[Rfam]
RNA: bZIP non canonical Hac1/Xbp1 intron
Organism: Dicentrarchus labrax
RNA sequence: AGGGCGCCCUGCAGUGGCGCCCUGCAGUGGCGCCCUGCAGUGACGCCCUGCAGUGGCGCCCUGCAGUGGCGCCCU
Numbered sequence: 001a002g003g004g005c006g007c008c009c010u011g012c013a014g015u016g017g018c019g020c021c022c023u024g025c026a027g028u029g030g031c032g033c034c035c036u037g038c039a040g041u042g043a044c045g046c047c048c049u050g051c052a053g054u055g056g057c058g059c060c061c062u063g064c065a066g067u068g069g070c071g072c073c074c075u
Stems, first nucleotide, its partner, number of pairs: 001075007009066005016034006044058004